[Rfam]
RNA sequence: UCCGCCUCGAGGCGGAAUCUGAAGGAAGCCGGAGGCAAAAGCACGGCUUGAGGUACACGAAUCCAAUUUGAGGCGGCUGCAGUCGGACGAGUCUCCAAUACAAGACGAAAAUACAAAACUGCCAAAGACUGCAGUCGUAAACUUGGGCAUGCGCGGGCGGAAAGAUGACGUU
Number, nucleotide and partner (000 for none) at each position: 001u016002c015003c014004g013005c012006c011007u000008c000009g000010a000011g006012g005013c004014g003015g002016a001017a000018u000019c000020u000021g000022a000023a000024g000025g000026a000027a000028g172029c000030c170031g169032g000033a000034g000035g000036c164037a000038a000039a000040a000041g158042c157043a000044c155045g154046g152047c151048u000049u149050g148051a000052g000053g000054u000055a000056c000057a000058c000059g000060a000061a000062u147063c146064c145065a144066a143067u141068u000069u000070g000071a000072g000073g138074c137075g136076g000077c134078u133079g132080c131081a130082g129083u128084c000085g000086g112087a000088c000089g000090a000091g106092u105093c104094u103095c000096c000097a000098a000099u000100a000101c000102a000103a094104g093105a092106c091107g000108a000109a000110a000111a000112u086113a000114c000115a000116a000117a000118a000119c000120u000121g000122c000123c000124a000125a000126a000127g000128a083129c082130u081131g080132c079133a078134g077135u000136c075137g074138u073139a000140a000141a067142c000143u066144u065145g064146g063147g062148c050149a049150u000151g047152c046153g000154c045155g044156g000157g042158c041159g000160g000161a000162a000163a000164g036165a000166u000167g000168a000169c031170g030171u000172u028